[Rfam]
Shown here is a 489-nucleotide part of an RNA from Apis florea, a member of the family "Eukaryotic large subunit ribosomal RNA". Rfam's curators put it in the seed alignment. The family's consensus secondary structure is taken from published work. The source organism's lineage runs through Eukaryota, Mandibulata, Altocrustacea, Aculeata and Apis.
RNA sequence: CCUGAGAAACCCAAAAGAUCGAAUGGGGAGAUUCAUCGGCAACGGUGCUGGCUCCCGUUGGUGCGCGAUGCUCCGGAUGAAUCCUCGUGGUUCAUCGGCGAGGGCACGCCAUUUUCGGCUCGAAUGUUCCGGCAUCGUAGUCGUGCACUUCUCCCCUAGUAGAACGUCGCGACCCGUUGUGUGUCGGUCUACGGCCCGAGAGGGCGCCUGUCGCGUCGCUUCGUGCGCACGCGGCAGACCCUCGGUCGCCUGGCCGGCUGCACGACGGUACUCGCACGGUAUCGGGCCGCAACCAAUCCAUUUUUUCGAAUGUGUGUGCGUCAGGCCCGCCGCAAGCUCGGUCAGUUCUUACCCGGAGGUACGGACCUGGUGCCGUCCCCGGGCCUGGCCAGCUGUUAGCAGGCGGUGUCCUUGGACUGGCCAAGACUCGAAUUACCGGUCGGCGACGCUAUUGCUUUGGGUACUCUCAGGACCCGUCUUGAAACACGG
Numbered sequence: 001c002c003u004g005a006g007a008a009a010c011c012c013a014a015a016a017g018a019u020c021g022a023a024u025g026g027g028g029a030g031a032u033u034c035a036u037c038g039g040c041a042a043c044g045g046u047g048c049u050g051g052c053u054c055c056c057g058u059u060g061g062u063g064c065g066c067g068a069u070g071c072u073c074c075g076g077a078u079g080a081a082u083c084c085u086c087g088u089g090g091u092u093c094a095u096c097g098g099c100g101a102g103g104g105c106a107c108g109c110c111a112u113u114u115u116c117g118g119c120u121c122g123a124a125u126g127u128u129c130c131g132g133c134a135u136c137g138u139a140g141u142c143g144u145g146c147a148c149u150u151c152u153c154c155c156c157u158a159g160u161a162g163a164a165c166g167u168c169g170c171g172a173c174c175c176g177u178u179g180u181g182u183g184u185c186g187g188u189c190u191a192c193g194g195c196c197c198g199a200g201a202g203g204g205c206g207c208c209u210g211u212c213g214c215g216u217c218g219c220u221u222c223g224u225g226c227g228c229a230c231g232c233g234g235c236a237g238a239c240c241c242u243c244g245g246u247c248g249c250c251u252g253g254c255c256g257g258c259u260g261c262a263c264g265a266c267g268g269u270a271c272u273c274g275c276a277c278g279g280u281a282u283c284g285g286g287c288c289g290c291a292a293c294c295a296a297u298c299c300a301u302u303u304u305u306u307c308g309a310a311u312g313u314g315u316g317u318g319c320g321u322c323a324g325g326c327c328c329g330c331c332g333c334a335a336g337c338u339c340g341g342u343c344a345g346u347u348c349u350u351a352c353c354c355g356g357a358g359g360u361a362c363g364g365a366c367c368u369g370g371u372g373c374c375g376u377c378c379c380c381g382g383g384c385c386u387g388g389c390c391a392g393c394u395g396u397u398a399g400c401a402g403g404c405g406g407u408g409u410c411c412u413u414g415g416a417c418u419g420g421c422c423a424a425g426a427c428u429c430g431a432a433u434u435a436c437c438g439g440u441c442g443g444c445g446a447c448g449c450u451a452u453u454g455c456u457u458u459g460g461g462u463a464c465u466c467u468c469a470g471g472a473c474c475c476g477u478c479u480u481g482a483a484a485c486a487c488g489g
Base pairs, nucleotide, nucleotide: 001471002470003469004468005467006466007465009462010461011460012459017305021303022302023301024300025299026298309452312449313448314447315446474489475488476487477486